[Rfam]
RNA sequence: CUCUGCCAGCACCUGGCAGGGCAGGAAGGAG
Number, nucleotide and partner (000 for none) at each position: 001c021002u020003c019004u018005g017006c016007c015008a014009g000010c000011a000012c000013c000014u008015g007016g006017c005018a004019g003020g002021g001022c000023a000024g000025g000026a000027a000028g000029g000030a000031g000
Rfam assigns this 31-nucleotide RNA sequence from Neogale vison to the family "L31-Firmicutes ribosomal protein leader". On this family, see Eckert and Weinberg, BMC Microbiol 2020: "Discovery of 20 novel ribosomal leader candidates in bacteria and archaea". Taxonomically the source falls in Neogale (Eukaryota, Metazoa, Eumetazoa, Laurasiatheria). A search with the family's covariance model found it, with a score of 34 bits. It is annotated as a cis-regulatory leader.